[Rfam]
RNA sequence: UCGAGCGCCGAUUGGGCUCGGCGGGUCAGGGGGCGCCGGGAUGCUUCCAGGCGCCUCUCAGCUCCAACUUGCUCAGUGAGGAGAUGGAAAUGAGAA
Numbered sequence: 001u002c003g004a005g006c007g008c009c010g011a012u013u014g015g016g017c018u019c020g021g022c023g024g025g026u027c028a029g030g031g032g033g034c035g036c037c038g039g040g041a042u043g044c045u046u047c048c049a050g051g052c053g054c055c056u057c058u059c060a061g062c063u064c065c066a067a068c069u070u071g072c073u074c075a076g077u078g079a080g081g082a083g084a085u086g087g088a089a090a091u092g093a094g095a096a
Stems, first nucleotide, its partner, number of pairs: 001021006008015002031056007039048002057094004064087003068083003072080003
RNA: Repression of heat shock gene expression (ROSE) element